The record is a 203-nucleotide RNA from Reticulibacter mediterranei, which matches "Ribosomal protein L10 leader" in Rfam.
The family's consensus secondary structure was predicted with CMfinder.
It is annotated as a cis-regulatory leader.
RNA sequence: AACAAAAUAAUCAAUCAACCGAAGACAGCAAGUAUGCCUAUCAUGGCACAUAAACGUCGAGCAAUCGGCGGCUUGCCGAGGGAAUUUCAAUAAAGCAGACAACUGAUGCUGCGUGCAGUAAUAGUACGUGCGUCGUUGUAGAGCAGAAAAUGAGUAUCUCUCGCCUUCGGUACAUAUUACCGAAGGCGUUUUUUCGCGUUUUU
Numbered sequence: 001a002a003c004a005a006a007a008u009a010a011u012c013a014a015u016c017a018a019c020c021g022a023a024g025a026c027a028g029c030a031a032g033u034a035u036g037c038c039u040a041u042c043a044u045g046g047c048a049c050a051u052a053a054a055c056g057u058c059g060a061g062c063a064a065u066c067g068g069c070g071g072c073u074u075g076c077c078g079a080g081g082g083a084a085u086u087u088c089a090a091u092a093a094a095g096c097a098g099a100c101a102a103c104u105g106a107u108g109c110u111g112c113g114u115g116c117a118g119u120a121a122u123a124g125u126a127c128g129u130g131c132g133u134c135g136u137u138g139u140a141g142a143g144c145a146g147a148a149a150a151u152g153a154g155u156a157u158c159u160c161u162c163g164c165c166u167u168c169g170g171u172a173c174a175u176a177u178u179a180c181c182g183a184a185g186g187c188g189u190u191u192u193u194u195c196g197c198g199u200u201u202u203u
Stems, first nucleotide, its partner, number of pairs: 028076006162188010